[Rfam]
RNA sequence: AUCAAGAAUAGAGGUGCGGCAUUUAAGAGUAUUUAAGCAGAGGCAAGCACGAUGAAGCUUAAAGAAAGGAAAUGUCGCCGAAGUCUAAAGCUGAUGCUUUAAGGCUUUAGGCUGGGGCUGCAUAGAAUAUGUGCAGCACUGUCACAAAUAGUAUUAUUUGUGGAGGGCUAUUCUUAAG
Numbered sequence: 001a002u003c004a005a006g007a008a009u010a011g012a013g014g015u016g017c018g019g020c021a022u023u024u025a026a027g028a029g030u031a032u033u034u035a036a037g038c039a040g041a042g043g044c045a046a047g048c049a050c051g052a053u054g055a056a057g058c059u060u061a062a063a064g065a066a067a068g069g070a071a072a073u074g075u076c077g078c079c080g081a082a083g084u085c086u087a088a089a090g091c092u093g094a095u096g097c098u099u100u101a102a103g104g105c106u107u108u109a110g111g112c113u114g115g116g117g118c119u120g121c122a123u124a125g126a127a128u129a130u131g132u133g134c135a136g137c138a139c140u141g142u143c144a145c146a147a148a149u150a151g152u153a154u155u156a157u158u159u160g161u162g163g164a165g166g167g168c169u170a171u172u173c174u175u176a177a178g
Stems, first nucleotide, its partner, number of pairs: 006173006016078009032063007082113011114140002117137008142163007
This 178-nucleotide RNA from Thermosyntropha lipolytica belongs to the Rfam family "Lysine riboswitch aptamer".
The organism belongs to Thermosyntropha lipolytica, within Bacteria.
The family's consensus secondary structure is taken from published work.